A member of the RNA family "Sense overlapping transcript RNA 0042 (sot)" from Natronolimnohabitans innermongolicus, 165 nucleotides long. Rfam describes the family as follows. It is associated with IS1341-type transposase (tnpB) genes, at the 3'-end in H. salinarum NRC-1. The tetraloop structural motif may be functional.
RNA sequence: AGAUAACUCAGAAUCCUCCAACUGGGGAUAUGAGUAACGGUCGUUUGGCACGGCCAGUAGCCUACCUGUUCAAUCAAACCUCGGGGCGUUUCGCACCGAGCGAACAGGCUGGUUGCAAACCUUAAUAUCCCAACGCUUGGGAAUCCUCGCCCUUCAGGGCGGGGA
Numbered sequence: 001a002g003a004u005a006a007c008u009c010a011g012a013a014u015c016c017u018c019c020a021a022c023u024g025g026g027g028a029u030a031u032g033a034g035u036a037a038c039g040g041u042c043g044u045u046u047g048g049c050a051c052g053g054c055c056a057g058u059a060g061c062c063u064a065c066c067u068g069u070u071c072a073a074u075c076a077a078a079c080c081u082c083g084g085g086g087c088g089u090u091u092c093g094c095a096c097c098g099a100g101c102g103a104a105c106a107g108g109c110u111g112g113u114u115g116c117a118a119a120c121c122u123u124a125a126u127a128u129c130c131c132a133a134c135g136c137u138u139g140g141g142a143a144u145c146c147u148c149g150c151c152c153u154u155c156a157g158g159g160c161g162g163g164g165a
Stems, first nucleotide, its partner, number of pairs: 004037001007034004013029003016025002039055005058115005065108007083097002086094002128142004133137001144165009
Rfam classes the family as a small RNA. The source organism's lineage runs through Archaea, Methanobacteriota, Halobacteria, Natrialbaceae and Natronolimnohabitans innermongolicus. A search with the family's covariance model found it, with a score of 95 bits.